[Rfam]
Nucleotides: 374
Stems, first nucleotide, its partner, number of pairs: 004374002007370001008349007016036006041368003045365005050255005055072006078250005083101006102127001103125004128245002132185003139177004147170004193243002195239002208227002211224005259282003286315004316334006
Number, partner (000 for none) and nucleotide at each position: 001000c002000a003000u004374g005373a006000a007370g008349a009348c010347u011346g012345g013344u014343g015000g016036c017035a018034g019033u020032u021031a022000u023000c024000u025000c026000a027000u028000a029000a030000a031021u032020a033019a034018c035017u036016g037000a038000g039000g040000a041368a042367a043366g044000u045365c046364c047363g048362u049361a050255c051254u052253c053252g054251c055072a056071c057070u058069u059068a060067c061000u062000g063000g064000a065000a066000u067060g068059u069058a070057a071056g072055u073000a074000a075000u076000u077000u078250u079249a080248g081247u082246g083101c084100u085099a086098g087097g088096u089000c090000c091000a092000a093000u094000a095000a096088a097087c098086c099085u100084a101083g102127g103125c104124g105123g106122g107000u108000c109000u110000u111000a112000u113000u114000g115000u116000u117000c118000u119000c120000c121000u122106c123105c124104c125103g126000a127102c128245g129244g130000c131000u132185g133184g134183c135000g136000a137000a138000u139177g140176a141175c142174c143000u144000a145000a146000a147170u148169g149168c150167u151000u152000u153000u154000a155000u156000u157000c158000u159000c160000u161000c162000u163000u164000c165000u166000c167150g168149g169148c170147a171000g172000a173000u174142g175141g176140u177139c178000u179000a180000a181000u182000a183134g184133c185132c186000u187000a188000u189000a190000a191000a192000a193243g194242u195239g196238c197000c198000a199000u200000a201000g202000u203000g204000a205000c206000g207000a208227u209226u210000a211224c212223u213222c214221g215220g216000g217000a218000a219000a220215c221214c222213g223212a224211g225000g226209a227208a228000g229000u230000g231000g232000a233000a234000c235000g236000u237000c238196g239195u240000a241000a242194a243193c244129c245128c246082c247081a248080c249079u250078a251054g252053c253052g254051a255050g256000c257000a258000a259282u260281c261280c262000a263000a264000a265000u266000u267000c268000u269000u270000u271000a272000a273000a274000u275000u276000g277000g278000u279000a280261g281260g282259a283000g284000c285000a286315c287314c288313a289312a290000a291000g292000a293000a294000a295000g296000a297000g298000a299000a300000u301000a302000a303000u304000a305000a306000u307000c308000u309000c310000a311000a312289u313288u314287g315286g316334u317333a318332a319331u320330u321329c322000u323000c324000a325000c326000a327000a328000g329321g330320a331319a332318u333317u334316a335000a336000g337000a338000c339000a340000g341000a342000u343014c344013a345012c346011c347010g348009g349008u350000u351000a352000a353000a354000a355000a356000c357000a358000g359000a360000a361049u362048a363047c364046g365045g366043c367042u368041u369000a370007u371000u372000c373005u374004u